[Rfam]
RNA sequence: GAUGCCAGACAGGGGAGCGCCACGGGGCGCUGAGAGUGCGGAACCGCAGACCCUCGAACCUGAUCCGGCUAGCACCGGCGUAGGGAGUCGGGAAUCUCCUCAC
Numbered sequence: 001g002a003u004g005c006c007a008g009a010c011a012g013g014g015g016a017g018c019g020c021c022a023c024g025g026g027g028c029g030c031u032g033a034g035a036g037u038g039c040g041g042a043a044c045c046g047c048a049g050a051c052c053c054u055c056g057a058a059c060c061u062g063a064u065c066c067g068g069c070u071a072g073c074a075c076c077g078g079c080g081u082a083g084g085g086a087g088u089c090g091g092g093a094a095u096c097u098c099c100u101c102a103c
Stems, first nucleotide, its partner, number of pairs: 006091001008089003011054004017030005037048004059084004065078004

Rfam assigns this 103-nucleotide RNA sequence from Micropruina sp. to the family "TPP riboswitch aptamer (THI element)".